[Rfam]
RNA sequence: GGUGGCUAAGCAACACUCAAUUAAACAAUCCCCUCGCCUUUUACUAGGGGAUUCCGUGAGUGUUGUUAACAUACACCGCAUAUCCUAAUUUUUCAGCACUCAGCUUGAUCUGAGAC
Numbered sequence: 001g002g003u004g005g006c007u008a009a010g011c012a013a014c015a016c017u018c019a020a021u022u023a024a025a026c027a028a029u030c031c032c033c034u035c036g037c038c039u040u041u042u043a044c045u046a047g048g049g050g051a052u053u054c055c056g057u058g059a060g061u062g063u064u065g066u067u068a069a070c071a072u073a074c075a076c077c078g079c080a081u082a083u084c085c086u087a088a089u090u091u092u093u094c095a096g097c098a099c100u101c102a103g104c105u106u107g108a109u110c111u112g113a114g115a116c
Stems, first nucleotide, its partner, number of pairs: 003078003009067011027053008096116001099114005

Shown here is a 116-nucleotide RNA from Desarmillaria tabescens, a member of the family "U5 spliceosomal RNA". NCBI's taxonomy places the organism under Eukaryota, Fungi, Agaricomycotina, Marasmiineae, Desarmillaria. The match comes from Rfam's covariance-model search (72 bits). The family has 180 seed sequences and 28,527 matches in Rfam 15.1. It is annotated as a spliceosomal small nuclear RNA.